RNA sequence: AAUUGGCUUUAGCUAGGAAGCAACAAAAAUCAAUCAGAUUGUUCUGAUCUAUCUGACUUGAGGUCUUUUUGAUUAGGAGCUUUGCUUUACUUUUAAAUCAAGAUGUUCCUAAUUAAGCAGCGUCAGACAUUA
Dot-bracket structure: ...((..(((......)))....))...........(((((...)))))........((((.((...((((.((((((((........................)))))))).))))..)).))))......